[Rfam]
RNA sequence: CGGGGAGAGGGGGAGUCCCUCAGCCCAAAUUGCGAGAGGGUGCAAGCCAGGCUGAGGGACCCUACUGGUGCAUG
Numbered sequence: 001c002g003g004g005g006a007g008a009g010g011g012g013g014a015g016u017c018c019c020u021c022a023g024c025c026c027a028a029a030u031u032g033c034g035a036g037a038g039g040g041u042g043c044a045a046g047c048c049a050g051g052c053u054g055a056g057g058g059a060c061c062c063u064a065c066u067g068g069u070g071c072a073u074g
Stems, first nucleotide, its partner, number of pairs: 004071001006069001009066002012063002015060011030045005
The record is a 74-nucleotide RNA sequence from Cnephaeus nilssonii, which matches "mir-9193 microRNA precursor family" in Rfam. Rfam 15.1 lists 6,008 matches to the family in 8 species. NCBI's taxonomy places the organism under Eukaryota, Chordata, Dipnotetrapodomorpha, Yangochiroptera, Cnephaeus. The base pairs follow the family's consensus structure, which was predicted with RNAalifold. The match comes from Rfam's covariance-model search (65 bits).